[Rfam]
Nucleotides: 082
Stems, first nucleotide, its partner, number of pairs: 001081003032051001033048001
Number, partner (000 for none) and nucleotide at each position: 001081u002080c003079c004000u005000a006000u007000g008000a009000u010000g011000g012000c013000a014000u015000g016000a017000a018000a019000u020000c021000u022000u023000u024000g025000a026000g027000a028000c029000c030000u031000g032051a033048u034000u035000u036000g037000u038000g039000u040000u041000u042000u043000u044000a045000a046000g047000c048033a049000c050000a051032u052000g053000a054000u055000g056000a057000g058000a059000a060000u061000u062000a063000u064000a065000a066000g067000c068000u069000a070000a071000a072000a073000u074000u075000c076000u077000g078000a079003g080002g081001a082000u

Shown here is an 82-nucleotide RNA sequence from Zostera marina, a member of the family "Small nucleolar RNA R66". The source organism's lineage runs through Eukaryota, Streptophyta, Embryophyta, Liliopsida and Zostera. The family's consensus secondary structure was predicted with PFOLD. Rfam links the family to the GO terms nucleolus and RNA processing. Rfam's curators write: snoR66 is a C/D box small nucleolar RNA, which acts as a methylation guide for 18S ribosomal RNA in plants. snoR66 has been alternatively named snoZ269 in rice. A reference for the family is Chen et al. (2003), "The high diversity of snoRNAs in plants: identification and comparative study of 120 snoRNA genes from Oryza sativa", Nucleic Acids Res.